The family of this 359-nucleotide part of an RNA from Methanocorpusculum labreanum is "Archaeal large subunit ribosomal RNA". Rfam's curators put it in the seed alignment.

RNA sequence: CGGAAUUAUUUGUGGUAAGGGAACUCGGCAAAAUGGCUCCGUACCUUCGGAACAAGGAGUGCCUGCCUAGUGAUUAGGCAGGUCGCAGUGACCAGGGAGCUCUAACUGUCUAACAACAACAUAGCAGACUGCAACUCCGUAAGGACUAGUAUAGUCUGUGAAUCCUGCCCAGUGCGGGUAUCUGAACACUGAUUACAAUCGGACGAAGGACCCGUAAACGGCGGGGGUAACUAUGACCCUCUUAAGGUAGCGUAGUACCUUGUCGCUUAAUUGGCGACUUGCAUGAAUGGAUUAAUAAGGGCUCUACUGUCCCUACCGCAAAUCCGUUGAACCUUUUAUCCUUGUGCAGAGGCAAGGGA
Numbered sequence: 001c002g003g004a005a006u007u008a009u010u011u012g013u014g015g016u017a018a019g020g021g022a023a024c025u026c027g028g029c030a031a032a033a034u035g036g037c038u039c040c041g042u043a044c045c046u047u048c049g050g051a052a053c054a055a056g057g058a059g060u061g062c063c064u065g066c067c068u069a070g071u072g073a074u075u076a077g078g079c080a081g082g083u084c085g086c087a088g089u090g091a092c093c094a095g096g097g098a099g100c101u102c103u104a105a106c107u108g109u110c111u112a113a114c115a116a117c118a119a120c121a122u123a124g125c126a127g128a129c130u131g132c133a134a135c136u137c138c139g140u141a142a143g144g145a146c147u148a149g150u151a152u153a154g155u156c157u158g159u160g161a162a163u164c165c166u167g168c169c170c171a172g173u174g175c176g177g178g179u180a181u182c183u184g185a186a187c188a189c190u191g192a193u194u195a196c197a198a199u200c201g202g203a204c205g206a207a208g209g210a211c212c213c214g215u216a217a218a219c220g221g222c223g224g225g226g227g228u229a230a231c232u233a234u235g236a237c238c239c240u241c242u243u244a245a246g247g248u249a250g251c252g253u254a255g256u257a258c259c260u261u262g263u264c265g266c267u268u269a270a271u272u273g274g275c276g277a278c279u280u281g282c283a284u285g286a287a288u289g290g291a292u293u294a295a296u297a298a299g300g301g302c303u304c305u306a307c308u309g310u311c312c313c314u315a316c317c318g319c320a321a322a323u324c325c326g327u328u329g330a331a332c333c334u335u336u337u338a339u340c341c342u343u344g345u346g347c348a349g350a351g352g353c354a355a356g357g358g359a
Stems, first nucleotide, its partner, number of pairs: 001326004010321008019312003036060005045050001061083009084088001096305007103297002107121003124159008132149001136145003162292004167222003172219002174215005181210003189202004223241006242246001262278006340357005
Clan: LSU clan.